[Rfam]
RNA: Small nucleolar RNA R66
Organism: Malus domestica
RNA sequence: UCCGAUGAUGGAUUAAAUCUUUGAGACCUGAUCAUCGAAUGGAUGACAACUAUAAGCAUGGUUUCUGAGGAU
Number, nucleotide and partner (000 for none) at each position: 001u071002c070003c069004g000005a000006u000007g000008a000009u000010g000011g000012a000013u000014u000015a000016a000017a000018u000019c000020u000021u000022u000023g000024a000025g000026a000027c000028c000029u000030g000031a000032u038033c037034a000035u000036c000037g033038a032039a000040u000041g000042g000043a000044u000045g000046a000047c000048a000049a000050c000051u000052a000053u000054a000055a000056g000057c000058a000059u000060g000061g000062u000063u000064u000065c000066u000067g000068a000069g003070g002071a001072u000